[Rfam]
RNA: mir-3492 microRNA precursor family
RNA sequence: AGCCUUAUGUAUACGAGUCGAGAUUUCAUCAGACACCAGGCCGUCAGGACUAAUGAGGCUUUCGAGAUAAGUAAAGCG
Dot-bracket structure: .((.((.(.(((....(..(((.((((((.......................))))))))).)...))).).)).)).